Annotation
SAM riboswitch aptamer (S box leader): a 132-nucleotide RNA sequence from Oscillochloris trichoides. From the family's description: The SAM riboswitch is found upstream of a number of genes which code for proteins involved in methionine or cysteine biosynthesis in Gram-positive bacteria. The organism belongs to Oscillochloris trichoides, within Bacteria. On this family, see Grundy and Henkin, Mol Microbiol 1998: "The S box regulon: a new global transcription termination control system for methionine and cysteine biosynthesis genes in gram-positive bacteria". Rfam links the family to the GO term regulation of gene expression. The match comes from Rfam's covariance-model search (68 bits).

[Rfam]
RNA sequence: ACCUCAUCGAGAUGGGCAGAGGGACUGGCCCGAUGAAGCCCGGCAACCGCCUGAUGGUAGCCAAUAUCUACCAUAUCCAGUACGGUGCUAAUUCCUGCGCUGGGCUUAUGUAUGCCCAUCGAAAGAUGAGAG
Numbered sequence: 001a002c003c004u005c006a007u008c009g010a011g012a013u014g015g016g017c018a019g020a021g022g023g024a025c026u027g028g029c030c031c032g033a034u035g036a037a038g039c040c041c042g043g044c045a046a047c048c049g050c051c052u053g054a055u056g057g058u059a060g061c062c063a064a065u066a067u068c069u070a071c072c073a074u075a076u077c078c079a080g081u082a083c084g085g086u087g088c089u090a091a092u093u094c095c096u097g098c099g100c101u102g103g104g105c106u107u108a109u110g111u112a113u114g115c116c117c118a119u120c121g122a123a124a125g126a127u128g129a130g131a132g
Stems, first nucleotide, its partner, number of pairs: 003130006014041004021031003025097001027095002042089004047085002051080003093124001098121002101118005